[Rfam]
RNA sequence: GAAAUUUUUGAUUUCGGUAUCGGUAUUACUCAUCGACAUUUGGCCUUCUCCUAAUCUAAUCGCCUCGGUUAUUUGUGCCGAGGUUUUU
Numbered sequence: 001g002a003a004a005u006u007u008u009u010g011a012u013u014u015c016g017g018u019a020u021c022g023g024u025a026u027u028a029c030u031c032a033u034c035g036a037c038a039u040u041u042g043g044c045c046u047u048c049u050c051c052u053a054a055u056c057u058a059a060u061c062g063c064c065u066c067g068g069u070u071a072u073u074u075g076u077g078c079c080g081a082g083g084u085u086u087u088u
Base pairs, nucleotide, nucleotide: 058084063083064082065081066080067079068078069077
RNA: Photosynthesis regulatory RNA1
Organism: Nostocales cyanobacterium HT-58-2